[Rfam]
RNA sequence: CCGCGUUCUCAGGGCGGGGCGAAAUUCCCCACCGGCGGUAUGCAACUGUGGUUGUGAGCCCGCGAGCGCCUUCGAUCAUCUCGAAGGGUCAGCAGAUCAGGUGAGAGGCCUGAGCCGACGGUCAUAGUCCGGACGAAAGAGAACGGGU
Numbered sequence: 001c002c003g004c005g006u007u008c009u010c011a012g013g014g015c016g017g018g019g020c021g022a023a024a025u026u027c028c029c030c031a032c033c034g035g036c037g038g039u040a041u042g043c044a045a046c047u048g049u050g051g052u053u054g055u056g057a058g059c060c061c062g063c064g065a066g067c068g069c070c071u072u073c074g075a076u077c078a079u080c081u082c083g084a085a086g087g088g089u090c091a092g093c094a095g096a097u098c099a100g101g102u103g104a105g106a107g108g109c110c111u112g113a114g115c116c117g118a119c120g121g122u123c124a125u126a127g128u129c130c131g132g133a134c135g136a137a138a139g140a141g142a143a144c145g146g147g148u
Base pairs, nucleotide, nucleotide: 004145005144006143007142008141009140010139017029018028019027031128032127033117034116035063036062037061038060058115059114066093067092097113098112099111100110101109119131120130121129

The family of this 148-nucleotide RNA from Aerobium aerolatum is "FMN riboswitch aptamer (RFN element)". The base pairs follow the family's consensus structure, which is taken from published work. Taxonomically the source falls in Aerobium aerolatum (Bacteria, Pseudomonadati, Pseudomonadota, Phyllobacteriaceae).